[Rfam]
RNA sequence: UGGACACACUCUGGAGAGUCUCAAUGGAUGAGCGCCGAAGGUGUAAAGGAUAUGCAGUGCAUACCCAAAUCUCUCAGGCAAAAGGACAGAGCAACGAUA
Numbered sequence: 001u002g003g004a005c006a007c008a009c010u011c012u013g014g015a016g017a018g019u020c021u022c023a024a025u026g027g028a029u030g031a032g033c034g035c036c037g038a039a040g041g042u043g044u045a046a047a048g049g050a051u052a053u054g055c056a057g058u059g060c061a062u063a064c065c066c067a068a069a070u071c072u073c074u075c076a077g078g079c080a081a082a083a084g085g086a087c088a089g090a091g092c093a094a095c096g097a098u099a
Stems, first nucleotide, its partner, number of pairs: 009091005020032004034079003037075002041073001043071001048066002
RNA: Glycine riboswitch aptamer